[Rfam]
RNA: t44 RNA
Nucleotides: 089
Stems, first nucleotide, its partner, number of pairs: 023079008037069009050059003
Number, partner (000 for none) and nucleotide at each position: 001000u002000u003000u004000a005000u006000u007000c008000a009000a010000u011000u012000u013000c014000a015000a016000a017000a018000a019000c020000a021000c022000a023079c024078a025077c026076a027075u028074a029073u030072c031000u032000u033000g034000u035000u036000c037069a038068u039067u040066a041065a042064a043063u044062u045061g046000g047000g048000g049000u050059g051058c052057c053000a054000a055000a056000u057052g058051g059050u060000u061045c062044a063043a064042u065041u066040u067039a068038a069037u070000u071000g072030g073029a074028u075027a076026u077025g078024u079023g080000g081000a082000g083000g084000c085000u086000a087000a088000a089000c